Annotation: The family of this 327-nucleotide RNA from Nothoprocta ornata is "7SK RNA". Rfam classes the family as a non-coding RNA gene. From the family's description: 7SK was discovered as an abundant small nuclear RNA in the mid-70s but a possible function has only recently been suggested. Two independent studies have found that 7SK RNA binds the CDK9/cyclin T complex (known as elongation factor P-TEFb). P-TEFb activates transcription by phosphorylating the C-terminal domain of RNA polymerase II. This process is negatively regulated by the 7SK RNP. The secondary structure of 7SK RNA shown here was proposed by Wasserman and Steitz on the basis of chemical modification and enzymatic cleavage experiments. The family's consensus secondary structure is taken from published work. Rfam 15.1 lists 49,373 matches to the family in 668 species.

[Rfam]
RNA sequence: AGAUGUGAAGGUGAUCUGACUGCAGUAUCUGUCCCCUCUUUGAUCACCAGUCAGUUCGGCUGAUCUGGCUGGCUAGGCGGGUGUCCCCUUCCUCCCUCACCGCUCCAUGUACAUUCCUCCCAAAGCUGCAUGCUCUGUCAAAGAGGACGACCUUCUCUGAUAGAGAUGUACCAUUCAUCAGUCAAGGGCGUAUGGUAGCUGCGCUCCCCCGCUAGAACCUUUAAAAAAAGCUCAAGGUCCAUUUGUAGAAGAGCAUAGAGUAGUCAAGCUUCCAAGACCACAGACAUAUCCAAGUGCGGCACUGCACAUGGCAAUCUGCCAUUCUUU
Numbered sequence: 001a002g003a004u005g006u007g008a009a010g011g012u013g014a015u016c017u018g019a020c021u022g023c024a025g026u027a028u029c030u031g032u033c034c035c036c037u038c039u040u041u042g043a044u045c046a047c048c049a050g051u052c053a054g055u056u057c058g059g060c061u062g063a064u065c066u067g068g069c070u071g072g073c074u075a076g077g078c079g080g081g082u083g084u085c086c087c088c089u090u091c092c093u094c095c096c097u098c099a100c101c102g103c104u105c106c107a108u109g110u111a112c113a114u115u116c117c118u119c120c121c122a123a124a125g126c127u128g129c130a131u132g133c134u135c136u137g138u139c140a141a142a143g144a145g146g147a148c149g150a151c152c153u154u155c156u157c158u159g160a161u162a163g164a165g166a167u168g169u170a171c172c173a174u175u176c177a178u179c180a181g182u183c184a185a186g187g188g189c190g191u192a193u194g195g196u197a198g199c200u201g202c203g204c205u206c207c208c209c210c211g212c213u214a215g216a217a218c219c220u221u222u223a224a225a226a227a228a229a230g231c232u233c234a235a236g237g238u239c240c241a242u243u244u245g246u247a248g249a250a251g252a253g254c255a256u257a258g259a260g261u262a263g264u265c266a267a268g269c270u271u272c273c274a275a276g277a278c279c280a281c282a283g284a285c286a287u288a289u290c291c292a293a294g295u296g297c298g299g300c301a302c303u304g305c306a307c308a309u310g311g312c313a314a315u316c317u318g319c320c321a322u323u324c325u326u327u
Stems, first nucleotide, its partner, number of pairs: 002105002005100004010095002013091002018088001025084009035072002037068002042065004047059002115168001117165003120137001123134001125133002138160003145156003198269003204263002207260001209258001211256001219251004225246001227244003292327003296322001298320003301315001303313003